Shown here is a 74-nucleotide RNA sequence from Aquifex aeolicus, a member of the family "tRNA". The match comes from Rfam's covariance-model search (70 bits). Clan: tRNA clan. The base pairs follow the family's consensus structure, which is taken from published work.

[Rfam]
RNA sequence: GGCGGCGUAGCUCAGCUGGUCAGAGCGGGGAUCUCAUAAGUCCCAGGUCGGAGGUUCGAGUCCUCCCGCCGCCA
Numbered sequence: 001g002g003c004g005g006c007g008u009a010g011c012u013c014a015g016c017u018g019g020u021c022a023g024a025g026c027g028g029g030g031a032u033c034u035c036a037u038a039a040g041u042c043c044c045a046g047g048u049c050g051g052a053g054g055u056u057c058g059a060g061u062c063c064u065c066c067c068g069c070c071g072c073c074a
Base pairs, nucleotide, nucleotide: 001073002072003071004070005069006068007067010026011025012024013023028044029043030042031041032040050066051065052064053063054062

Lineage of the source: Bacteria > Aquificota > Aquificales > Aquifex > Aquifex aeolicus.